The record is a 110-nucleotide RNA sequence from Crassaminicella thermophila, which matches "TPP riboswitch aptamer (THI element)" in Rfam. Vitamin B(1) in its active form thiamin pyrophosphate (TPP) is an essential coenzyme that is synthesised by coupling of pyrimidine and thiazole moieties in bacteria. The match comes from Rfam's covariance-model search (79 bits).
[Rfam]
Nucleotides: 110
Stems, first nucleotide, its partner, number of pairs: 006098003010094001011059004017032005039053005065090004071084004
Number, partner (000 for none) and nucleotide at each position: 001000a002000u003000g004000a005000u006098a007097u008096a009000c010094a011059a012058g013057g014056g015000g016000a017032g018031c019030u020029c021028a022000u023000a024000g025000g026000a027000a028021u029020g030019g031018g032017c033000u034000g035000a036000g037000a038000a039053a040052g041051a042050g043049a044000u045000g046000u047000u048000a049043u050042c051041u052040c053039u054000g055000a056014c057013c058012c059011u060000u061000a062000u063000a064000a065090c066089c067088u068087g069000a070000u071084u072083u073082g074081g075000g076000u077000a078000a079000u080000g081074c082073c083072a084071a085000c086000g087068u088067a089066g090065g091000g092000a093000a094010u095000a096008u097007g098006u099000u100000u101000a102000u103000g104000a105000u106000u107000u108000u109000u110000a